[Rfam]
Nucleotides: 118
Stems, first nucleotide, its partner, number of pairs: 003112001012103005019055003023051007033042003061086009071076001087095002
Number, partner (000 for none) and nucleotide at each position: 001000a002000u003112a004000g005000a006000a007000u008000a009000u010000g011000a012103g013102c014101u015100c016099c017000g018000a019055g020054c021053u022000u023051a024050u025049g026048u027047u028046c029045c030000u031000a032000a033042g034041g035040u036000u037000u038000a039000a040035a041034c042033u043000a044000u045029g046028g047027a048026a049025u050024g051023u052000c053021a054020g055019c056000c057000g058000a059000u060000a061086g062085g063084g064083u065082g066081g067080g068079g069078c070000c071076g072000g073000a074000a075000a076071c077000a078069g079068c080067c081066c082065c083064g084063c085062c086061u087095c088094c089000c090000c091000a092000u093000u094088g095087g096000a097000a098000a099016g100015g101014a102013g103012u104000a105000a106000u107000a108000c109000c110000a111000g112003u113000u114000u115000g116000g117000u118000u

Shown here is a 118-nucleotide sequence from Oxobacter pfennigii, a member of the family "Molybdenum/Tungsten riboswitch aptamer (Moco RNA motif)". The family's consensus secondary structure is taken from published work.